[Rfam]
RNA sequence: CCAUCGGCCCUUUUCAGGGCCAUAAAAUUAGUGAAAAAGAGUUAA
Numbered sequence: 001c002c003a004u005c006g007g008c009c010c011u012u013u014u015c016a017g018g019g020c021c022a023u024a025a026a027a028u029u030a031g032u033g034a035a036a037a038a039g040a041g042u043u044a045a
Stems, first nucleotide, its partner, number of pairs: 006021006